[Rfam]
RNA sequence: CUUCACGAGAUGUGACGGGCAACACAGUCGGCUAGCCGGUGGUGUUGCAAAGGCUCCGACCGGUCACGCACCAACCCCAUGUUCGUGGGUGGUUCGGAUGACGAAGCGGCCUGCAUAUUCGCAGAACGACGAGGUUCUAAGGGGGACCCGUGCGGGCAAGAACUAUCG
Number, nucleotide and partner (000 for none) at each position: 001c106002u105003u104004c103005a000006c000007g000008a000009g069010a000011u068012g067013u066014g065015a064016c063017g000018g061019g000020c000021a000022a000023c000024a000025c000026a000027g000028u000029c000030g000031g000032c000033u000034a000035g000036c000037c000038g000039g000040u000041g000042g000043u000044g000045u000046u000047g000048c000049a000050a000051a000052g000053g000054c000055u000056c000057c000058g000059a000060c000061c018062g000063g016064u015065c014066a013067c012068g011069c009070a093071c092072c091073a000074a000075c089076c088077c087078c000079a000080u000081g000082u000083u000084c000085g000086u000087g077088g076089g075090u000091g072092g071093u070094u000095c000096g000097g000098a000099u000100g000101a000102c000103g004104a003105a002106g001107c000108g000109g157110c156111c155112u154113g153114c152115a151116u000117a000118u000119u000120c000121g000122c000123a000124g000125a000126a000127c000128g000129a000130c000131g000132a000133g000134g000135u000136u000137c000138u000139a000140a000141g000142g000143g000144g000145g000146a000147c000148c000149c000150g000151u115152g114153c113154g112155g111156g110157c109158a000159a000160g000161a000162a000163c000164u000165a000166u000167c000168g000